[Rfam]
RNA sequence: UGCAGAUGAUGUGAAAGAACACUUGCUAUCUGAGUGAUAGUGCUGACACUUCACCACCAAGAUCUCUGAUGCA
Numbered sequence: 001u002g003c004a005g006a007u008g009a010u011g012u013g014a015a016a017g018a019a020c021a022c023u024u025g026c027u028a029u030c031u032g033a034g035u036g037a038u039a040g041u042g043c044u045g046a047c048a049c050u051u052c053a054c055c056a057c058c059a060a061g062a063u064c065u066c067u068g069a070u071g072c073a
Stems, first nucleotide, its partner, number of pairs: 001073004
Dot-bracket structure: ((((.................................................................))))

Shown here is a 73-nucleotide sequence from Bucco capensis, a member of the family "Small nucleolar RNA SNORD24". On this family, see Qu et al., Nucleic Acids Res 1995: "U24, a novel intron-encoded small nucleolar RNA with two 12 nt long, phylogenetically conserved complementarities to 28S rRNA". It scores 76 bits against the family's covariance model. Its family is annotated with nucleolus and RNA processing in the Gene Ontology.